[Rfam]
RNA sequence: AUGACCGUGGAGGGAGAGACUGCAAGUACGGAUCAUUAGUAACUGCGGCGCCGAAGGAGCAAGCUACGAGCGAAUCUCUCAGGCACAAAAGACUUUCACGGGACG
Numbered sequence: 001a002u003g004a005c006c007g008u009g010g011a012g013g014g015a016g017a018g019a020c021u022g023c024a025a026g027u028a029c030g031g032a033u034c035a036u037u038a039g040u041a042a043c044u045g046c047g048g049c050g051c052c053g054a055a056g057g058a059g060c061a062a063g064c065u066a067c068g069a070g071c072g073a074a075u076c077u078c079u080c081a082g083g084c085a086c087a088a089a090a091g092a093c094u095u096u097c098a099c100g101g102g103a104c105g
Stems, first nucleotide, its partner, number of pairs: 006100008020048004050084003053080002057078003063071002

A member of the RNA family "Glycine riboswitch aptamer" from Salimicrobium jeotgali, 105 nucleotides long. Rfam's curators write: This family represents the bacterial glycine riboswitch.